[Rfam]
RNA sequence: AAGGUAUCCAAUGAAACUCCCCGUGUCCUCGAAGGGAGUUACUCCCGUAGACUGCACGUGGAG
Numbered sequence: 001a002a003g004g005u006a007u008c009c010a011a012u013g014a015a016a017c018u019c020c021c022c023g024u025g026u027c028c029u030c031g032a033a034g035g036g037a038g039u040u041a042c043u044c045c046c047g048u049a050g051a052c053u054g055c056a057c058g059u060g061g062a063g
Base pairs, nucleotide, nucleotide: 017063018062019061020060024056025055026054029051030050034046035045036044037043038042
Dot-bracket structure: ................((((...(((..((...(((((...)))))...))..)))...))))